[Rfam]
RNA: Vertebrate telomerase RNA
Organism: Pipistrellus kuhlii
RNA sequence: GGGGCCCGGGCCGGGUGAUGGCCGCAUCCUGUCUAACCCUAACUAUCUUGGGCGUGGGCGCGGCGCUUUUGUUCCCCGCGCGCUGUUUUUCUCGCUGGCUUUCAGCGGGCGGAAAAGCCCCGGCCUACUGCCGUCCACCAUCCAGUUAGAGAGAGAGAGAGAGAGGAGAGAGAGAGAGAGAGGAAAAAAAAGGCCAGCGGCUGGCUAUCACCCCUCCCGGGAGCCUGCGCUGUCCGCCCGCUCAGCCCCCGCGCCCCGCCCGGAGGCCGCGGUCGGCCUGGGGCCUCUCCGGAGGUGCCCGCUGCCGCCGCGAAGAGUUGGGCUCUGUCAGCCGCGGGUGUCCCGGGGGCCGAGGGCUAGGCUCUUCACGCAGGCAGAGUAACGGAGCGGGUCCCCGCGCGCGGUGCACCUCCCUGAGCUGUGGGACUUGCAUCCGGGUCUGGGCUCCGACACGU
Numbered sequence: 001g002g003g004g005c006c007c008g009g010g011c012c013g014g015g016u017g018a019u020g021g022c023c024g025c026a027u028c029c030u031g032u033c034u035a036a037c038c039c040u041a042a043c044u045a046u047c048u049u050g051g052g053c054g055u056g057g058g059c060g061c062g063g064c065g066c067u068u069u070u071g072u073u074c075c076c077c078g079c080g081c082g083c084u085g086u087u088u089u090u091c092u093c094g095c096u097g098g099c100u101u102u103c104a105g106c107g108g109g110c111g112g113a114a115a116a117g118c119c120c121c122g123g124c125c126u127a128c129u130g131c132c133g134u135c136c137a138c139c140a141u142c143c144a145g146u147u148a149g150a151g152a153g154a155g156a157g158a159g160a161g162a163g164a165g166g167a168g169a170g171a172g173a174g175a176g177a178g179a180g181a182g183g184a185a186a187a188a189a190a191a192g193g194c195c196a197g198c199g200g201c202u203g204g205c206u207a208u209c210a211c212c213c214c215u216c217c218c219g220g221g222a223g224c225c226u227g228c229g230c231u232g233u234c235c236g237c238c239c240g241c242u243c244a245g246c247c248c249c250c251g252c253g254c255c256c257c258g259c260c261c262g263g264a265g266g267c268c269g270c271g272g273u274c275g276g277c278c279u280g281g282g283g284c285c286u287c288u289c290c291g292g293a294g295g296u297g298c299c300c301g302c303u304g305c306c307g308c309c310g311c312g313a314a315g316a317g318u319u320g321g322g323c324u325c326u327g328u329c330a331g332c333c334g335c336g337g338g339u340g341u342c343c344c345g346g347g348g349g350c351c352g353a354g355g356g357c358u359a360g361g362c363u364c365u366u367c368a369c370g371c372a373g374g375c376a377g378a379g380u381a382a383c384g385g386a387g388c389g390g391g392u393c394c395c396c397g398c399g400c401g402c403g404g405u406g407c408a409c410c411u412c413c414c415u416g417a418g419c420u421g422u423g424g425g426a427c428u429u430g431c432a433u434c435c436g437g438g439u440c441u442g443g444g445c446u447c448c449g450a451c452a453c454g455u
Stems, first nucleotide, its partner, number of pairs: 005221006013213006020206005065118005077111003081107005094198006100191003224374006236362003240357004245350007255338005268312005274307004280300003314326004385447004390441002393438003404433005411426004
Dot-bracket structure: ....((((((..((((((.(((((........................................(((((.......(((.(((((........[[[[[[[[[))))).)))..)))))......................................................................]]].]]]]]]...))))).))))))..))))))..((((((......(((.((((.(((((((...(((((........(((((.((((..(((...............)))...))))))))).((((.....)))).......))))).....)))))))...))))..)))......))))))..........((((.((.(((........(((((..((((........))))..)))))..))).))..))))........